Listeria sRNA rli61: a 99-nucleotide RNA from Ureibacillus yapensis. The family's consensus secondary structure was predicted with RNAalifold. The literature on the family includes a 2009 paper in Nature by Toledo-Arana et al., "The Listeria transcriptional landscape from saprophytism to virulence". Taxonomically the source falls in Ureibacillus (Bacteria, Bacillati, Bacilli, Caryophanales).
[Rfam]
RNA sequence: CGUGAAAUAAAUCACAUAACAAACACACCCCUUUGUUUGAACGUGAACAUUUCUCCCAUCCCCUUUGUAAGAGGCGUCACUUGGUGACGCCUCUUUUUU
Numbered sequence: 001c002g003u004g005a006a007a008u009a010a011a012u013c014a015c016a017u018a019a020c021a022a023a024c025a026c027a028c029c030c031c032u033u034u035g036u037u038u039g040a041a042c043g044u045g046a047a048c049a050u051u052u053c054u055c056c057c058a059u060c061c062c063c064u065u066u067g068u069a070a071g072a073g074g075c076g077u078c079a080c081u082u083g084g085u086g087a088c089g090c091c092u093c094u095u096u097u098u099u
Stems, first nucleotide, its partner, number of pairs: 002055001004053005013045003017041001020039006067097001069095012